The record is a 287-nucleotide sequence from Synechococcus sp. CC9311, which matches "Cyanobacteria transfer-messenger RNA" in Rfam. The organism belongs to Synechococcus, within Bacteria. From the family's description: Bacterial tmRNA, also known as 10Sa RNA or SsrA, is named for its dual tRNA and mRNA-like properties. The literature on the family includes a 2002 paper in Nucleic Acids Res by Williams, "The tmRNA Website: invasion by an intron". Clan: tRNA clan. Its family is annotated with RNA catabolic process in the Gene Ontology. Rfam classes the family as a non-coding RNA gene. Rfam's curators put it in the seed alignment.

RNA sequence: AUGCCAGAAUGACAAAGUCCGUUCUUGAACGGACUAGGUGGUCCACACCGGUGUUUCGGACAGCGGUUCGAUUCCGCUCAGCUCCAUUCUCCCUUCGGGGCUGCAAUGGUUUCGACGGGGCAUAAGGAGGGUGACUGAAGCCUGCUCGGUAAGAGCAAAUCCCGUAACUGCGAACAACAUCGUACGUUUCUCCCGUCAAGCAGCCCCUGUUGCUGCCUGACCCUAUUAAGGGAGAUGGGGUGAAGUCAGCCUUAUCACCCAAGUGACUCGUGGGGGUGGAAUGCCCC
Numbered sequence: 001a002u003g004c005c006a007g008a009a010u011g012a013c014a015a016a017g018u019c020c021g022u023u024c025u026u027g028a029a030c031g032g033a034c035u036a037g038g039u040g041g042u043c044c045a046c047a048c049c050g051g052u053g054u055u056u057c058g059g060a061c062a063g064c065g066g067u068u069c070g071a072u073u074c075c076g077c078u079c080a081g082c083u084c085c086a087u088u089c090u091c092c093c094u095u096c097g098g099g100g101c102u103g104c105a106a107u108g109g110u111u112u113c114g115a116c117g118g119g120g121c122a123u124a125a126g127g128a129g130g131g132u133g134a135c136u137g138a139a140g141c142c143u144g145c146u147c148g149g150u151a152a153g154a155g156c157a158a159a160u161c162c163c164g165u166a167a168c169u170g171c172g173a174a175c176a177a178c179a180u181c182g183u184a185c186g187u188u189u190c191u192c193c194c195g196u197c198a199a200g201c202a203g204c205c206c207c208u209g210u211u212g213c214u215g216c217c218u219g220a221c222c223c224u225a226u227u228a229a230g231g232g233a234g235a236u237g238g239g240g241u242g243a244a245g246u247c248a249g250c251c252u253u254a255u256c257a258c259c260c261a262a263g264u265g266a267c268u269c270g271u272g273g274g275g276g277u278g279g280a281a282u283g284c285c286c287c
Base pairs, nucleotide, nucleotide: 017034018033019032020031021030022029023028037136038135039134041132042131043130044129048127049126051123052122053121054120055119056118057117058116062078063077064076065075066074079103080102081101082100083099084098085097143157144156145155146154147153199218200217202214203213204212231260232259234256235255236254237253238252239251240250241249273287274286275285276284277283278282